[Rfam]
RNA: Small nucleolar RNA snoR111
RNA sequence: UGUUUUGAACGAGAGAUGAUUCAGUUGUCUCUUCGUUAAGAAGAACAGUCGAGGUAUAGCAAGGCCGAGAUAUCGUUUCAGUCGUCAUUUCUCUGGAUUGACGAUUCGAUUGUUGCUCGUCCACAU
Numbered sequence: 001u002g003u004u005u006u007g008a009a010c011g012a013g014a015g016a017u018g019a020u021u022c023a024g025u026u027g028u029c030u031c032u033u034c035g036u037u038a039a040g041a042a043g044a045a046c047a048g049u050c051g052a053g054g055u056a057u058a059g060c061a062a063g064g065c066c067g068a069g070a071u072a073u074c075g076u077u078u079c080a081g082u083c084g085u086c087a088u089u090u091c092u093c094u095g096g097a098u099u100g101a102c103g104a105u106u107c108g109a110u111u112g113u114u115g116c117u118c119g120u121c122c123a124c125a126u
Stems, first nucleotide, its partner, number of pairs: 006039001008037004013031006063122002066119004072110004081105007089097002